Shown here is a 179-nucleotide sequence from Trichormus azollae, a member of the family "c-di-AMP riboswitch aptamer (ydaO/yuaA leader)". It scores 65 bits against the family's covariance model. NCBI's taxonomy places the organism under Bacteria, Bacillati, Cyanophyceae, Nostocales, Trichormus azollae.

[Rfam]
RNA sequence: UUAAUCAGUCUGCCUAAUGCCAAUCCCUAAACUAUAUAUUAGGGUAACUGGAAGCGGAGGAACCAUAUUUGGGGCUAAUCUUUAUAGAUUUCGGAAUUUGAAAUCCAAAAUCCAGACAAGAAGAACAUCUCUCAGUUCUAGCCCGUCAGCUAACUUCGUCGGCAUUGAGAGGAGACUGA
Numbered sequence: 001u002u003a004a005u006c007a008g009u010c011u012g013c014c015u016a017a018u019g020c021c022a023a024u025c026c027c028u029a030a031a032c033u034a035u036a037u038a039u040u041a042g043g044g045u046a047a048c049u050g051g052a053a054g055c056g057g058a059g060g061a062a063c064c065a066u067a068u069u070u071g072g073g074g075c076u077a078a079u080c081u082u083u084a085u086a087g088a089u090u091u092c093g094g095a096a097u098u099u100g101a102a103a104u105c106c107a108a109a110a111u112c113c114a115g116a117c118a119a120g121a122a123g124a125a126c127a128u129c130u131c132u133c134a135g136u137u138c139u140a141g142c143c144c145g146u147c148a149g150c151u152a153a154c155u156u157c158g159u160c161g162g163c164a165u166u167g168a169g170a171g172g173a174g175a176c177u178g179a
Base pairs, nucleotide, nucleotide: 011164012163013162014161018053020051021050022049054159055158056157057156058155059154064071065070072144073143074142080120081119082118123138124137125136126135